[Rfam]
RNA sequence: ACCCUCCGGUUCCCUUUCCCAUCAGAUCUGAACCUUGGUCUUGGUGGUCGUAAGAGGAGGAAUAGUAGUACUGAAGCUAUGCUCACGGUGUCUGCUUAUAUAGCAUGUGGGCUAGUUUCAAACAAGG
Numbered sequence: 001a002c003c004c005u006c007c008g009g010u011u012c013c014c015u016u017u018c019c020c021a022u023c024a025g026a027u028c029u030g031a032a033c034c035u036u037g038g039u040c041u042u043g044g045u046g047g048u049c050g051u052a053a054g055a056g057g058a059g060g061a062a063u064a065g066u067a068g069u070a071c072u073g074a075a076g077c078u079a080u081g082c083u084c085a086c087g088g089u090g091u092c093u094g095c096u097u098a099u100a101u102a103g104c105a106u107g108u109g110g111g112c113u114a115g116u117u118u119c120a121a122a123c124a125a126g127g
Stems, first nucleotide, its partner, number of pairs: 003060005019047005025040004077115003081112004093105003
Small nucleolar RNA SNORA61: a 127-nucleotide sequence from Lipotes vexillifer.
The family's RNA type in Rfam is H/ACA-box small nucleolar RNA.
Pairs were carried over by alignment from the consensus structure, which was predicted with PFOLD.
Rfam links the family to the GO terms RNA processing and nucleolus.
From the family's description: ACA61 is a member of the H/ACA class of snoRNA that guide the sites of modification of uridines to pseudouridines.
NCBI's taxonomy places the organism under Eukaryota, Opisthokonta, Theria, Cetacea, Lipotes.